[Rfam]
RNA sequence: AAUGGAAGCUGCAGGAACCAACCAUGUGGACAAAUAAAAACUCCUUUUGUCUACAGAUGGCAGCAAUCCUACAUUAACAUGGAGGUCUCUGUCUGACUUAGGACAGCUGGCUAAGUCAGAUCGUUCCCCUCCAUACACU
Dot-bracket structure: ...(((.(((((............(((((((....((.......))..)))))))....)))))..)))...........(((((...(.(((.(((((((.........))))))).))).)....))))).......
A member of the RNA family "Small Cajal body specific RNA 3" from Castor canadensis, 139 nucleotides long. NCBI's taxonomy places the organism under Eukaryota, Eumetazoa, Deuterostomia, Theria, Castor. Pairs were carried over by alignment from the consensus structure, which was predicted with RNAalifold. Rfam's curators write: scaRNAs are a specific class of small nuclear RNAs which localise to the Cajal bodies and guide the modification of RNA polymerase II transcribed spliceosomal RNAs U1, U2, U4, U5 and U12. Rfam links the family to the GO terms nucleolus, Cajal body and RNA processing. Rfam 15.1 lists 642 matches to the family in 535 species. The match comes from Rfam's covariance-model search (155 bits).